A member of the RNA family "Small nucleolar RNA U49" from Actinidia chinensis, 49 nucleotides long. For this family Rfam cites "Multiple snoRNA gene clusters from Arabidopsis" (Brown et al., RNA, 2001). Pairs were carried over by alignment from the consensus structure, which was predicted with CMfinder. Its Rfam clan is "SNORD49 clan". Gene Ontology terms of the family: nucleolus and RNA processing.
[Rfam]
RNA sequence: UCACUUCCUUAGAUAGGAAGUGCCGUAUGACACUUCAAACAGCAGCGGC
Numbered sequence: 001u002c003a004c005u006u007c008c009u010u011a012g013a014u015a016g017g018a019a020g021u022g023c024c025g026u027a028u029g030a031c032a033c034u035u036c037a038a039a040c041a042g043c044a045g046c047g048g049c
Stems, first nucleotide, its partner, number of pairs: 002045001017036006